Record summary
This 48-nucleotide RNA from Sulfurimicrobium lacus belongs to the Rfam family "Guanidine-II riboswitch aptamer (mini-ykkC)". A search with the family's covariance model found it, with a score of 38 bits. The base pairs follow the family's consensus structure, which is taken from published work.

RNA sequence: GCCGCGGGACGUCCUGCGGCCGAAAGCAACAAAGGCGGGACGACCCGC
Numbered sequence: 001g002c003c004g005c006g007g008g009a010c011g012u013c014c015u016g017c018g019g020c021c022g023a024a025a026g027c028a029a030c031a032a033a034g035g036c037g038g039g040a041c042g043a044c045c046c047g048c
Stems, first nucleotide, its partner, number of pairs: 001020008035048005